[Rfam]
RNA sequence: UCCUCUGUGGCGCAAUUGGUCUAGCGCGUCUGACUGUUAAUCAGGAGGUUGAAAGUUCGAGUCUUUCCGGAGGAG
Numbered sequence: 001u002c003c004u005c006u007g008u009g010g011c012g013c014a015a016u017u018g019g020u021c022u023a024g025c026g027c028g029u030c031u032g033a034c035u036g037u038u039a040a041u042c043a044g045g046a047g048g049u050u051g052a053a054a055g056u057u058c059g060a061g062u063c064u065u066u067c068c069g070g071a072g073g074a075g
Base pairs, nucleotide, nucleotide: 001074002073003072004071005070006069007068010027011026012025013024029045030044031043032042033041051067052066053065054064055063
Annotation:
tRNA: a 75-nucleotide sequence from Tolypocladium capitatum. It scores 66 bits against the family's covariance model. Pairs were carried over by alignment from the consensus structure, which is taken from published work. The family's RNA type in Rfam is transfer RNA.